[Rfam]
RNA sequence: UGGGUUCCGGUUCACGGCUCUGGCGAGGUCAGAGGCGACCCGGCGACC
Dot-bracket structure: ..(((.((((....((.((((((.....)))))).))..))))..)))
Numbered sequence: 001u002g003g004g005u006u007c008c009g010g011u012u013c014a015c016g017g018c019u020c021u022g023g024c025g026a027g028g029u030c031a032g033a034g035g036c037g038a039c040c041c042g043g044c045g046a047c048c
Stems, first nucleotide, its partner, number of pairs: 003048003007043004015037002018034006